The family of this 84-nucleotide sequence from Etheostoma spectabile is "Vault RNA". About the family: This family of RNAs are found as part of the enigmatic vault ribonucleoprotein complex. The complex consists of a major vault protein (MVP), two minor vault proteins (VPARP and TEP1), and several small untranslated RNA molecules. It has been suggested that the vault complex is involved in drug resistance. Lineage of the source: Eukaryota > Opisthokonta > Metazoa > Euteleosteomorpha > Oligocephalus.

RNA sequence: GCAUCGGUUUAGCUCAAUGGUUACUGAAGUUUCGACUCUAUGAACGGCUGAAGAGUUUGACCAUGGGCACUACCCGGUGUUUUC
Numbered sequence: 001g002c003a004u005c006g007g008u009u010u011a012g013c014u015c016a017a018u019g020g021u022u023a024c025u026g027a028a029g030u031u032u033c034g035a036c037u038c039u040a041u042g043a044a045c046g047g048c049u050g051a052a053g054a055g056u057u058u059g060a061c062c063a064u065g066g067g068c069a070c071u072a073c074c075c076g077g078u079g080u081u082u083u084c
Stems, first nucleotide, its partner, number of pairs: 002079006012068004017064004